RNA sequence: UUUUUUAGGGAAAAUCUGGCCUGUCCACAAGGACAGGCCAGGGAAUUUUUGU
Numbered sequence: 001u002u003u004u005u006u007a008g009g010g011a012a013a014a015u016c017u018g019g020c021c022u023g024u025c026c027a028c029a030a031g032g033a034c035a036g037g038c039c040a041g042g043g044a045a046u047u048u049u050u051g052u
Stems, first nucleotide, its partner, number of pairs: 008052001010050005015042011
The record is a 52-nucleotide RNA from Lentivirus humimdef1, which matches "HIV Ribosomal frameshift signal" in Rfam. Lineage of the source: Viruses > Pararnavirae > Artverviricota > Orthoretrovirinae > Lentivirus humimdef1. By type it is a frameshift element. Pairs were carried over by alignment from the consensus structure, which is taken from published work. Rfam's curators put it in the seed alignment. Rfam's curators write: This family represents the HIV Ribosomal frameshift signal. HIV uses a system called -1 ribosomal frameshifting to produce the required ratio of Gag and Gag-Pol polyproteins. The stem-loop structure of the frameshift signal is thought to impede the ribosome and cause slippage in the 5' direction, this causes the -1 frameshift and translation then continues in the new frame. Its family is annotated with viral translational frameshifting in the Gene Ontology.